Rfam assigns this 98-nucleotide RNA to the family "RAGATH-34 RNA".
The sequence is in the family's curated seed alignment.
Pairs were carried over by alignment from the consensus structure, which is taken from published work.

RNA sequence: UCCUACUGCGAGACACGAAACUGACCUGAUGAGUUAGGCUAUAUGUGCGCACAUAUAGUUGACUUAAACGUGUAUAAAUAAAAGUUGAAACCUAGUUC
Numbered sequence: 001u002c003c004u005a006c007u008g009c010g011a012g013a014c015a016c017g018a019a020a021c022u023g024a025c026c027u028g029a030u031g032a033g034u035u036a037g038g039c040u041a042u043a044u045g046u047g048c049g050c051a052c053a054u055a056u057a058g059u060u061g062a063c064u065u066a067a068a069c070g071u072g073u074a075u076a077a078a079u080a081a082a083a084g085u086u087g088a089a090a091c092c093u094a095g096u097u098c
Stems, first nucleotide, its partner, number of pairs: 001011002014072004022036004037060010